Rfam assigns this 586-nucleotide part of an RNA to the family "Bacterial small subunit ribosomal RNA". The base pairs follow the family's consensus structure, which is taken from published work. Its Rfam clan is "SSU clan". The match comes from Rfam's covariance-model search (1209 bits).
[Rfam]
RNA sequence: CCAGCCCUUGACAUAUGAACAACAAAACCUUAACGGGAUGGUACUUACUUUCAUACAGGUGCUGCAUGGCUGUCGUCAGCUCGUGUCGUGAGAUGUUUGGUCAAGUCCUAUAACGAGCGAAACCCUCGUUUUGUGUUGCUGAGACAUGCGCCUAAGGCAAAUUCAGUUUGCAACCGAAGCACGCCGAGGAGCCGAGUGACGUGCCAGCGCUACUAAUUGAGUGCCAGUACGUAGCUGUGCUGUCAGUAAGAAGAGAGCCGGCGCCUUUCGAAGUCUAGUGUGCGCUUUAGUUUGCAGCUAGCGUAGCGCGGAACAUAGAAAGGGCUUUUCUCGCUUGUUUCAUAAAGGUGAGUUUUUGGCCUUAUCUUGCAGGUGACGACGACGUCGAGUUGGCGGCGGAGAAAGACUCGGCAUUCAGGCGAGCCGCCCGGUGGUGUGGUACGUAGUGGGUUUAGUACGCCCCGCCAAAACGGCUCCGAAAGAAAGAAAGAAAAAGGUGCGUGCCGCACUCACGAGGGACUGCCAGUGAUAUACUGGAGGAAGGUGGGGAUGACGUCAAGUCCGCAUGGCCCUUAUGGGCUGGGCC
Numbered sequence: 001c002c003a004g005c006c007c008u009u010g011a012c013a014u015a016u017g018a019a020c021a022a023c024a025a026a027a028c029c030u031u032a033a034c035g036g037g038a039u040g041g042u043a044c045u046u047a048c049u050u051u052c053a054u055a056c057a058g059g060u061g062c063u064g065c066a067u068g069g070c071u072g073u074c075g076u077c078a079g080c081u082c083g084u085g086u087c088g089u090g091a092g093a094u095g096u097u098u099g100g101u102c103a104a105g106u107c108c109u110a111u112a113a114c115g116a117g118c119g120a121a122a123c124c125c126u127c128g129u130u131u132u133g134u135g136u137u138g139c140u141g142a143g144a145c146a147u148g149c150g151c152c153u154a155a156g157g158c159a160a161a162u163u164c165a166g167u168u169u170g171c172a173a174c175c176g177a178a179g180c181a182c183g184c185c186g187a188g189g190a191g192c193c194g195a196g197u198g199a200c201g202u203g204c205c206a207g208c209g210c211u212a213c214u215a216a217u218u219g220a221g222u223g224c225c226a227g228u229a230c231g232u233a234g235c236u237g238u239g240c241u242g243u244c245a246g247u248a249a250g251a252a253g254a255g256a257g258c259c260g261g262c263g264c265c266u267u268u269c270g271a272a273g274u275c276u277a278g279u280g281u282g283c284g285c286u287u288u289a290g291u292u293u294g295c296a297g298c299u300a301g302c303g304u305a306g307c308g309c310g311g312a313a314c315a316u317a318g319a320a321a322g323g324g325c326u327u328u329u330c331u332c333g334c335u336u337g338u339u340u341c342a343u344a345a346a347g348g349u350g351a352g353u354u355u356u357u358g359g360c361c362u363u364a365u366c367u368u369g370c371a372g373g374u375g376a377c378g379a380c381g382a383c384g385u386c387g388a389g390u391u392g393g394c395g396g397c398g399g400a401g402a403a404a405g406a407c408u409c410g411g412c413a414u415u416c417a418g419g420c421g422a423g424c425c426g427c428c429c430g431g432u433g434g435u436g437u438g439g440u441a442c443g444u445a446g447u448g449g450g451u452u453u454a455g456u457a458c459g460c461c462c463c464g465c466c467a468a469a470a471c472g473g474c475u476c477c478g479a480a481a482g483a484a485a486g487a488a489a490g491a492a493a494a495a496g497g498u499g500c501g502u503g504c505c506g507c508a509c510u511c512a513c514g515a516g517g518g519a520c521u522g523c524c525a526g527u528g529a530u531a532u533a534c535u536g537g538a539g540g541a542a543g544g545u546g547g548g549g550a551u552g553a554c555g556u557c558a559a560g561u562c563c564g565c566a567u568g569g570c571c572c573u574u575a576u577g578g579g580c581u582g583g584g585c586c
Base pairs, nucleotide, nucleotide: 001583002582003581004580005579006578007577014055015054016053017052018051019050026039028037029036030035042047058572059571061570062569063568064567067566068565069561070560071559072557074555075554079118080117081116082115083114084113085094086093087092097110099108100107124549125548126547127546129517130516131515132514133513134512135511139506520540521539523537524536525535526534527533